Rfam assigns this 98-nucleotide RNA sequence from Plutella xylostella to the family "mir-8517 microRNA precursor family". Rfam links the family to the GO terms miRNA-mediated post-transcriptional gene silencing and RISC complex. Pairs were carried over by alignment from the consensus structure, which was predicted with RNAalifold. Lineage of the source: Eukaryota > Metazoa > Bilateria > Panarthropoda > Plutella. The match comes from Rfam's covariance-model search (86 bits).

RNA sequence: UUACUGGACGCUUUAGUUAUUGAACUGUAUUGUCACUCUCUGUCAAAGAACAAAUUGUUCUCUGACAAAACAGUUCAUUAGCUAAAGGGUCCAGUAAC
Numbered sequence: 001u002u003a004c005u006g007g008a009c010g011c012u013u014u015a016g017u018u019a020u021u022g023a024a025c026u027g028u029a030u031u032g033u034c035a036c037u038c039u040c041u042g043u044c045a046a047a048g049a050a051c052a053a054a055u056u057g058u059u060c061u062c063u064g065a066c067a068a069a070a071c072a073g074u075u076c077a078u079u080a081g082c083u084a085a086a087g088g089g090u091c092c093a094g095u096a097a098c
Base pairs, nucleotide, nucleotide: 001097002096003095004094005093006092011087012086013085014084015083016082017081018080019079021077022076023075024074025073026072027071028070030068031067032066033065034064035063049059050058051057052056